Shown here is a 117-nucleotide sequence from Lysinibacillus sp. 2017, a member of the family "SAM riboswitch aptamer (S box leader)". Lineage of the source: Bacteria > Bacillati > Bacillota > Bacillaceae > Lysinibacillus. Rfam describes the family as follows. The SAM riboswitch is found upstream of a number of genes which code for proteins involved in methionine or cysteine biosynthesis in Gram-positive bacteria. Gene Ontology term of the family: regulation of gene expression.

RNA sequence: CUCUUAUCAAGAGCGACUGAGGGAAUAGGCCCUAUGAAAGUCCGGCAACCAGUGAGUGAUCAACUGACUAAGGUGCUACAUCCUACAAAGUGCAUUCUGCACUUUGAAAGAUAAGAG
Number, nucleotide and partner (000 for none) at each position: 001c117002u116003c115004u114005u113006a112007u111008c110009a000010a000011g000012a000013g043014c000015g042016a041017c040018u000019g000020a000021g032022g031023g030024a000025a000026u085027a084028g083029g082030c023031c022032c021033u000034a000035u000036g000037a000038a000039a000040g017041u016042c015043c013044g077045g076046c075047a074048a000049c073050c072051a069052g068053u067054g000055a000056g000057u000058g000059a000060u000061c000062a000063a000064c000065u000066g000067a053068c052069u051070a000071a000072g050073g049074u047075g046076c045077u044078a000079c000080a000081u109082c029083c028084u027085a026086c106087a105088a104089a103090g102091u101092g100093c099094a000095u000096u000097c000098u000099g093100c092101a091102c090103u089104u088105u087106g086107a000108a000109a081110g008111a007112u006113a005114a004115g003116a002117g001